[Rfam]
RNA sequence: GCCGUGCGGAUGCCAGGUCGACAUGAGUGCACCGGCGGGAGCGGAGGACCCAGGCACGACGGGUCGGUCCCGUGGCUCCGGACAGAGCCCGAACCGUCCCUUGGGGUGAAGCCGCUGUAUGCGGCCGGGCAUCUUCGCCAGCCCGAACCCGACAGGUCAUCCUUCGCAGGCUGAUGACGAAGGGUUA
Numbered sequence: 001g002c003c004g005u006g007c008g009g010a011u012g013c014c015a016g017g018u019c020g021a022c023a024u025g026a027g028u029g030c031a032c033c034g035g036c037g038g039g040a041g042c043g044g045a046g047g048a049c050c051c052a053g054g055c056a057c058g059a060c061g062g063g064u065c066g067g068u069c070c071c072g073u074g075g076c077u078c079c080g081g082a083c084a085g086a087g088c089c090c091g092a093a094c095c096g097u098c099c100c101u102u103g104g105g106g107u108g109a110a111g112c113c114g115c116u117g118u119a120u121g122c123g124g125c126c127g128g129g130c131a132u133c134u135u136c137g138c139c140a141g142c143c144c145g146a147a148c149c150c151g152a153c154a155g156g157u158c159a160u161c162c163u164u165c166g167c168a169g170g171c172u173g174a175u176g177a178c179g180a181a182g183g184g185u186u187a
Base pairs, nucleotide, nucleotide: 001171002170003169041167042166043165044164045163046162051103052102053101054100104150105149106148112124113123114122115121127144128143129142130141
This 187-nucleotide RNA from Actinacidiphila alni belongs to the Rfam family "c-di-AMP riboswitch aptamer (ydaO/yuaA leader)".
This family represents a conserved RNA structure found upstream of the ydaO and yuaA genes in Bacillus subtilis and related genes in other bacteria.
Lineage of the source: Bacteria > Actinomycetota > Kitasatosporales > Streptomycetaceae > Actinacidiphila.
It scores 48 bits against the family's covariance model.